Description
The family of this 61-nucleotide RNA is "RAGATH-18 RNA". The family's RNA type in Rfam is small RNA. The base pairs follow the family's consensus structure, which is taken from published work.
RNA sequence: GCUGUGGAGAGCCAAACAAACUGUAGUAGCCAAGGCGAGGCAGGGCUCGUUGAAGCAGUUA
Numbered sequence: 001g002c003u004g005u006g007g008a009g010a011g012c013c014a015a016a017c018a019a020a021c022u023g024u025a026g027u028a029g030c031c032a033a034g035g036c037g038a039g040g041c042a043g044g045g046c047u048c049g050u051u052g053a054a055g056c057a058g059u060u061a
Base pairs, nucleotide, nucleotide: 001059002058003057004056005055009048010047011046012045013044021043022042023041029036030035